[Rfam]
Nucleotides: 153
Stems, first nucleotide, its partner, number of pairs: 003029004008024005032071005038065004044059001045056002075104001076102005084095001108122003112118002126147007
Number, partner (000 for none) and nucleotide at each position: 001000u002000c003029u004028c005027c006026g007000c008024u009023c010022u011021c012020c013000c014000c015000g016000c017000a018000c019000a020012g021011g022010a023009g024008a025000g026006c027005g028004g029003a030000c031000c032071g033070a034069g035068g036067c037000u038065c039064c040063g041062g042000c043000a044059c045056u046055c047000u048000c049000u050000g051000c052000c053000c054000u055046g056045a057000c058000u059044g060000c061000g062041c063040c064039g065038g066000u067036g068035c069034c070033u071032c072000c073000a074000g075104u076102g077101g078100c079099c080098g081000g082000g083000g084095g085000c086000a087000c088000c089000g090000c091000a092000c093000a094000c095084c096000g097000c098080c099079g100078g101077c102076c103000a104075g105000g106000u107000a108122g109121c110120u111000c112118c113117g114000g115000g116000c117113u118112g119000c120110g121109g122108u123000g124000c125000c126147g127146g128145a129144c130143g131142g132141g133000c134000u135000g136000a137000g138000g139000g140000u141132c142131c143130c144129g145128u146127u147126c148000u149000g150000g151000c152000g153000c

This 153-nucleotide RNA sequence from Streptomyces griseus belongs to the Rfam family "Streptomyces sRNA scr5239". For this family Rfam cites "Identification of metE as a second target of the sRNA scr5239 in Streptomyces coelicolor" (Vockenhuber et al., PLoS One, 2015). Gene Ontology terms of the family: negative regulation of translation and mRNA binding. It is annotated as a small RNA. NCBI's taxonomy places the organism under Bacteria, Kitasatosporales, Streptomycetaceae, Streptomyces, Streptomyces griseus subsp. griseus. Rfam's curators put it in the seed alignment.